[Rfam]
Record summary
The family of this 75-nucleotide sequence from Haemonchus placei is "mir-5928 microRNA precursor family". Taxonomically the source falls in Haemonchus (Eukaryota, Opisthokonta, Nematoda, Rhabditomorpha).
RNA sequence: GGCUCAAAUUUGAAAUACAGUAGAUUAGUAGGGUCAGGUAAUCCUUCUAAUCCACUCUACUUCAAAUUUGGACCC
Numbered sequence: 001g002g003c004u005c006a007a008a009u010u011u012g013a014a015a016u017a018c019a020g021u022a023g024a025u026u027a028g029u030a031g032g033g034u035c036a037g038g039u040a041a042u043c044c045u046u047c048u049a050a051u052c053c054a055c056u057c058u059a060c061u062u063c064a065a066a067u068u069u070g071g072a073c074c075c
Base pairs, nucleotide, nucleotide: 001074002073004071005070006069007068008067009066011064012063013062014061016059017058019056020055021054023052025050026049027048028047030045032043033042034041